[Rfam]
Background:
Rfam assigns this 92-nucleotide sequence from Globicatella sp. HMSC072A10 to the family "THF (Tetrahydrofolate) riboswitch aptamer". Gene Ontology term of the family: tetrahydrofolate metabolic process. From the family's description: Tetrahydrofolate (THF) riboswitch was first reported for Ames et al. as an RNA motif in 5' untranslated (5'-UTR)regions of folate transport and biosynthesis genes in Firmicutes genomes. NCBI's taxonomy places the organism under Bacteria, Bacillati, Bacillota, Lactobacillales, Globicatella. The literature on the family includes a 2010 paper in Chem Biol by Ames et al., "A eubacterial riboswitch class that senses the coenzyme tetrahydrofolate". The family has 101 seed sequences and 747 matches in Rfam 15.1. The base pairs follow the family's consensus structure, which is taken from published work.
RNA sequence: AACAGAGUAGAGAAAUUGCGUUAAGUGCUAACAGAUGGAAUGUUGCUGAUAGACGAAGAGUAUACUCGCGGUAAUUUCUCGCAUUCGCUGCU
Numbered sequence: 001a002a003c004a005g006a007g008u009a010g011a012g013a014a015a016u017u018g019c020g021u022u023a024a025g026u027g028c029u030a031a032c033a034g035a036u037g038g039a040a041u042g043u044u045g046c047u048g049a050u051a052g053a054c055g056a057a058g059a060g061u062a063u064a065c066u067c068g069c070g071g072u073a074a075u076u077u078c079u080c081g082c083a084u085u086c087g088c089u090g091c092u
Stems, first nucleotide, its partner, number of pairs: 001092001003090003010080009019070003025054002028052003032048003038086005058067003
Dot-bracket structure: (.(((....((((((((((((...((.(((.(((...[[[[[...))).)))))...(((....)))))).))))))))).]]]]].))).)